Rfam assigns this 93-nucleotide sequence from Tahibacter aquaticus to the family "TPP riboswitch aptamer (THI element)". The source organism's lineage runs through Bacteria, Pseudomonadati, Pseudomonadota, Rhodanobacteraceae and Tahibacter.
[Rfam]
RNA sequence: CGACUGAAGCGGGGGUGCCCAGGAAUGGGCUGAGAGAGUCCCUUCGUACCUGACCCGGAUCAUGCCGGCGUAGGAAGCUUCGCAGCUGGCGCC
Number, nucleotide and partner (000 for none) at each position: 001c000002g000003a000004c000005u000006g081007a080008a079009g078010c077011g043012g042013g041014g040015g000016u037017g030018c029019c028020c027021a026022g000023g000024a000025a000026u021027g020028g019029g018030c017031u000032g000033a000034g000035a000036g000037a016038g000039u000040c014041c013042c012043u011044u000045c000046g000047u000048a000049c074050c073051u072052g071053a000054c000055c068056c067057g066058g065059a000060u000061c000062a000063u000064g000065c058066c057067g056068g055069c000070g000071u052072a051073g050074g049075a000076a000077g010078c009079u008080u007081c006082g000083c000084a000085g000086c000087u000088g000089g000090c000091g000092c000093c000